[Rfam]
Shown here is a 78-nucleotide sequence from Rattus norvegicus, a member of the family "mir-144 microRNA precursor family".
It is one of the family's seed sequences.
Its family is annotated with miRNA-mediated post-transcriptional gene silencing and RISC complex in the Gene Ontology.
The organism belongs to Rattus, within Eukaryota.
Pairs were carried over by alignment from the consensus structure, which was predicted with RNAalifold.

RNA sequence: GCCUUGGCUGGGAUAUCAUCAUAUACUGUAAGUUUGUGAUGAGACACUACAGUAUAGAUGAUGUACUAGUCUGGGUAC
Numbered sequence: 001g002c003c004u005u006g007g008c009u010g011g012g013a014u015a016u017c018a019u020c021a022u023a024u025a026c027u028g029u030a031a032g033u034u035u036g037u038g039a040u041g042a043g044a045c046a047c048u049a050c051a052g053u054a055u056a057g058a059u060g061a062u063g064u065a066c067u068a069g070u071c072u073g074g075g076u077a078c
Stems, first nucleotide, its partner, number of pairs: 007070002010067002013064008022056009032045003